RNA sequence: GCCCUGUGGUUACUGGACGCUGUUUGCAAGUACAGCUCUCCAGUGGAUAUGAAGGGCCAGAGCAAUCCUGUGAUGUAUGCGUGGGGGCUGUUUCUCUCAGCAGCCGCCACAGCCCGGUCACUGAUACAUAG
Numbered sequence: 001g002c003c004c005u006g007u008g009g010u011u012a013c014u015g016g017a018c019g020c021u022g023u024u025u026g027c028a029a030g031u032a033c034a035g036c037u038c039u040c041c042a043g044u045g046g047a048u049a050u051g052a053a054g055g056g057c058c059a060g061a062g063c064a065a066u067c068c069u070g071u072g073a074u075g076u077a078u079g080c081g082u083g084g085g086g087g088c089u090g091u092u093u094c095u096c097u098c099a100g101c102a103g104c105c106g107c108c109a110c111a112g113c114c115c116g117g118u119c120a121c122u123g124a125u126a127c128a129u130a131g
Stems, first nucleotide, its partner, number of pairs: 001057004007049002010046008019036005068123001070121005079113002081110004086105007

The family of this 131-nucleotide RNA from Mustela putorius is "Small nucleolar RNA SNORA84". By type it is an H/ACA-box small nucleolar RNA. A search with the family's covariance model found it, with a score of 134 bits. Lineage of the source: Eukaryota > Deuterostomia > Dipnotetrapodomorpha > Carnivora > Mustela putorius.